[Rfam]
RNA sequence: AACCGGUUGUCCAAAAGCCGGGGUACUAAAGAGGCACACCUUCAUUGCCGGCAGUGCGGAAGGGACUUCCCUAUCCAAAGCUGAGGCAGACAGAGCGAACUUUCGCCGCGAGGCGGGAGCUCAAAAU
Numbered sequence: 001a002a003c004c005g006g007u008u009g010u011c012c013a014a015a016a017g018c019c020g021g022g023g024u025a026c027u028a029a030a031g032a033g034g035c036a037c038a039c040c041u042u043c044a045u046u047g048c049c050g051g052c053a054g055u056g057c058g059g060a061a062g063g064g065a066c067u068u069c070c071c072u073a074u075c076c077a078a079a080g081c082u083g084a085g086g087c088a089g090a091c092a093g094a095g096c097g098a099a100c101u102u103u104c105g106c107c108g109c110g111a112g113g114c115g116g117g118a119g120c121u122c123a124a125a126a127u
Stems, first nucleotide, its partner, number of pairs: 003021006033049004080096002104115004